[Rfam]
RNA sequence: UGCAACGGAGGGCAGAACAGGCAGCUGCCGCCUGAAAGCGAGAUCGCAAAUGCUCGCUGUGUUGGAGAUGCCGGAAUGCCGACCGGCUCGUUGCG
Numbered sequence: 001u002g003c004a005a006c007g008g009a010g011g012g013c014a015g016a017a018c019a020g021g022c023a024g025c026u027g028c029c030g031c032c033u034g035a036a037a038g039c040g041a042g043a044u045c046g047c048a049a050a051u052g053c054u055c056g057c058u059g060u061g062u063u064g065g066a067g068a069u070g071c072c073g074g075a076a077u078g079c080c081g082a083c084c085g086g087c088u089c090g091u092u093g094c095g
Stems, first nucleotide, its partner, number of pairs: 001095008011029005020080004031065001038057004070087005